RNA sequence: GUAUGUAGCUGGUUGACAUCGGGUCAGAUCUAUUUAUUCGAGUAUUUGGUCCCCUUCAACCAGCUGUAGCAG
Number, nucleotide and partner (000 for none) at each position: 001g000002u000003a000004u068005g067006u000007a065008g064009c063010u062011g061012g060013u059014u058015g057016a056017c000018a000019u000020c000021g052022g051023g050024u049025c048026a047027g046028a045029u044030c000031u000032a000033u000034u000035u000036a000037u000038u000039c000040g000041a000042g000043u000044a029045u028046u027047u026048g025049g024050u023051c022052c021053c000054c000055u000056u016057c015058a014059a013060c012061c011062a010063g009064c008065u007066g000067u005068a004069g000070c000071a000072g000

This 72-nucleotide sequence from Drosophila grimshawi belongs to the Rfam family "mir-133 microRNA precursor family".
The base pairs follow the family's consensus structure, which was predicted with PFOLD.
The family has 127 seed sequences and 3,763 matches in Rfam 15.1.
The literature on the family includes a 2002 paper in Curr Biol by Lagos-Quintana et al., "Identification of tissue-specific microRNAs from mouse".
mir-133 was first experimentally characterised in mouse and homologues have since been discovered in several other species. The mature sequence is excised from the 3' arm of the hairpin.